[Rfam]
Bacterial RNase P class A: a 414-nucleotide RNA sequence from Paenibacillus sp. IHBB 10380. The source organism's lineage runs through Bacteria, Bacillati, Bacillota, Paenibacillaceae and Paenibacillus. It is annotated as a ribozyme. The literature on the family includes a 1999 paper in Nucleic Acids Res by Brown, "The Ribonuclease P Database".
RNA sequence: AAAGUUUAACAGACAAUCGCUGGUGGUGUUUAAGGCACCACGAGAGGAAAGUCCGGGCUCCAUAGGGCAGGGUGCUGGAUAACGUCCAGUCAGCGCGAGUUGAAGGAUAGUGCCACAGAAAUGGACCGCCGAUGGCCGCUUAGCGUGCACAGGCAAGGAUGGAACCGAGGUGUAAGAGACCCCGAGGAACGCUGGUGACUUCGUUCCUGGUAAACCCCACUUGGAGCAAGACCUAAUGGAACGCACGCUUUCUCUUUCGAGGGAAUGCAUCCUUAGCCCGAGGCGCGUUCAGGUUGGUCGCUGGAGCCACUCAGUAAUGUUUGGCCUAGAUAGAUGAUUGUCGCUUGGAGUGGGAGGGUAGUUCCCGUAUAUACCACGAAUAGCACAGAACCCGGCUUACGGUAAACUUUCACA
Numbered sequence: 001a002a003a004g005u006u007u008a009a010c011a012g013a014c015a016a017u018c019g020c021u022g023g024u025g026g027u028g029u030u031u032a033a034g035g036c037a038c039c040a041c042g043a044g045a046g047g048a049a050a051g052u053c054c055g056g057g058c059u060c061c062a063u064a065g066g067g068c069a070g071g072g073u074g075c076u077g078g079a080u081a082a083c084g085u086c087c088a089g090u091c092a093g094c095g096c097g098a099g100u101u102g103a104a105g106g107a108u109a110g111u112g113c114c115a116c117a118g119a120a121a122u123g124g125a126c127c128g129c130c131g132a133u134g135g136c137c138g139c140u141u142a143g144c145g146u147g148c149a150c151a152g153g154c155a156a157g158g159a160u161g162g163a164a165c166c167g168a169g170g171u172g173u174a175a176g177a178g179a180c181c182c183c184g185a186g187g188a189a190c191g192c193u194g195g196u197g198a199c200u201u202c203g204u205u206c207c208u209g210g211u212a213a214a215c216c217c218c219a220c221u222u223g224g225a226g227c228a229a230g231a232c233c234u235a236a237u238g239g240a241a242c243g244c245a246c247g248c249u250u251u252c253u254c255u256u257u258c259g260a261g262g263g264a265a266u267g268c269a270u271c272c273u274u275a276g277c278c279c280g281a282g283g284c285g286c287g288u289u290c291a292g293g294u295u296g297g298u299c300g301c302u303g304g305a306g307c308c309a310c311u312c313a314g315u316a317a318u319g320u321u322u323g324g325c326c327u328a329g330a331u332a333g334a335u336g337a338u339u340g341u342c343g344c345u346u347g348g349a350g351u352g353g354g355a356g357g358g359u360a361g362u363u364c365c366c367g368u369a370u371a372u373a374c375c376a377c378g379a380a381u382a383g384c385a386c387a388g389a390a391c392c393c394g395g396c397u398u399a400c401g402g403u404a405a406a407c408u409u410u411c412a413c414a
Base pairs, nucleotide, nucleotide: 001410002409003408004407005406006405007404008403010401012342013341014340015339016338017337018336020044021043023041024040025039026038027037028036049398050397051396053395054394055393056392057391058226059225060224061223065279066278067277068276070222071221072220073219074218075089076088077087078086079085090104091102092101093100094099105217106216110215111214112211113210114209126158127157128154129153130152133149134148166184167183169181170180171179186207187206188205189204190203191202194199230299231298232297233296239290240289241288242287243286244285271283272282273281274280306325307324308323309322312319313318
Dot-bracket structure: ((((((((.(.(((((((.((.((((((.......)))))).))....[[[.[[[[[((((...[[[[.((((((((((.....)))))(((((....)))).)((...(((((...........(((((..((.............))..)))..)).......((.(((.......))).)).((((((..(....)..)))))).)))..)))))))))))))...((((.....((((((..........................((((.]]]])))).)))))).....))))......((((..((....))..))))..........)))))))................................................]]]]]]]]..).))))))))....